Shown here is a 102-nucleotide sequence from Bacillus coahuilensis, a member of the family "Purine riboswitch aptamer". The base pairs follow the family's consensus structure, which is taken from published work.
RNA sequence: AAUUAUACCUAACAAGUUCUUCGUAUAUCCUCGAUAAUAAGGUUCGAGAGUCUCUACCGGGUCGCCGUAAAUGACCUGACUAUGAAGGCAGAAUUCUUGUAU
Numbered sequence: 001a002a003u004u005a006u007a008c009c010u011a012a013c014a015a016g017u018u019c020u021u022c023g024u025a026u027a028u029c030c031u032c033g034a035u036a037a038u039a040a041g042g043u044u045c046g047a048g049a050g051u052c053u054c055u056a057c058c059g060g061g062u063c064g065c066c067g068u069a070a071a072u073g074a075c076c077u078g079a080c081u082a083u084g085a086a087g088g089c090a091g092a093a094u095u096c097u098u099g100u101a102u
Stems, first nucleotide, its partner, number of pairs: 018088008030048005058078007